Notes
The record is a 102-nucleotide sequence from Sedimentibacter saalensis, which matches "Purine riboswitch aptamer" in Rfam.

[Rfam]
RNA sequence: UCGAAAUUAAAUAUUAGCAUCAAUAUAAUAUGGAAAAUAUGGUUCCAGAGUUUCUACCAAACAGCCGUAAAUUGUUUGACUAUUGAUUGGUUCACUAUUGUA
Numbered sequence: 001u002c003g004a005a006a007u008u009a010a011a012u013a014u015u016a017g018c019a020u021c022a023a024u025a026u027a028a029u030a031u032g033g034a035a036a037a038u039a040u041g042g043u044u045c046c047a048g049a050g051u052u053u054c055u056a057c058c059a060a061a062c063a064g065c066c067g068u069a070a071a072u073u074g075u076u077u078g079a080c081u082a083u084u085g086a087u088u089g090g091u092u093c094a095c096u097a098u099u100g101u102a
Stems, first nucleotide, its partner, number of pairs: 019087007029049001031047005058078007
The match comes from Rfam's covariance-model search (82 bits).